[Rfam]
RNA: HDV ribozyme from F. prausnitzii
RNA sequence: GUCCGACAAAAUCCAACCCCUCACUUCCUCGUAGUGUCGGACGGGCAACGUCAAUUUGGCGGCUAAGAGGGGCUC
Numbered sequence: 001g002u003c004c005g006a007c008a009a010a011a012u013c014c015a016a017c018c019c020c021u022c023a024c025u026u027c028c029u030c031g032u033a034g035u036g037u038c039g040g041a042c043g044g045g046c047a048a049c050g051u052c053a054a055u056u057u058g059g060c061g062g063c064u065a066a067g068a069g070g071g072g073c074u075c
Stems, first nucleotide, its partner, number of pairs: 001042007023035003049061005